[Rfam]
RNA: TPP riboswitch aptamer (THI element)
Organism: Candidatus Sedimenticola endophacoides
RNA sequence: CCCGUACGCUGGGGGUGCCCGCCGGAACGUUGUUCGUAUAUCAGCGGGCUGAGAUAUACCCUUUGCACCUGAUCCGGACAAUACCGGCGGAGGAAAGCUGCGGUGGACGCAA
Numbered sequence: 001c002c003c004g005u006a007c008g009c010u011g012g013g014g015g016u017g018c019c020c021g022c023c024g025g026a027a028c029g030u031u032g033u034u035c036g037u038a039u040a041u042c043a044g045c046g047g048g049c050u051g052a053g054a055u056a057u058a059c060c061c062u063u064u065g066c067a068c069c070u071g072a073u074c075c076g077g078a079c080a081a082u083a084c085c086g087g088c089g090g091a092g093g094a095a096a097g098c099u100g101c102g103g104u105g106g107a108c109g110c111a112a
Base pairs, nucleotide, nucleotide: 008098009097010096011062012061013060014059016056017049018048019047020046021045068093069092070091074087075086076085077084
Dot-bracket structure: .......(((((((.((((((.......................)))))......)..)))).....(((...((((......))))...)))..)))..............